A member of the RNA family "Flavobacterium-1 RNA", 120 nucleotides long. Rfam classes the family as a small RNA. Pairs were carried over by alignment from the consensus structure, which is taken from published work. It is one of the family's seed sequences.
RNA sequence: CAAGUUAGGCGUACAUAUCUUGCCCCUGGCAUUUCCCUGGACGUUAGCGAUGAUCCGAAAGGUAGCGACGAUACUUGGACCAGCAGCGCUGGCUUCCCUGAUCAGGAUGGCGUUGCUGGU
Numbered sequence: 001c002a003a004g005u006u007a008g009g010c011g012u013a014c015a016u017a018u019c020u021u022g023c024c025c026c027u028g029g030c031a032u033u034u035c036c037c038u039g040g041a042c043g044u045u046a047g048c049g050a051u052g053a054u055c056c057g058a059a060a061g062g063u064a065g066c067g068a069c070g071a072u073a074c075u076u077g078g079a080c081c082a083g084c085a086g087c088g089c090u091g092g093c094u095u096c097c098c099u100g101a102u103c104a105g106g107a108u109g110g111c112g113u114u115g116c117u118g119g120u
Stems, first nucleotide, its partner, number of pairs: 001077005006071001008069001009044004014039002021031004047066002055062002080119011097106003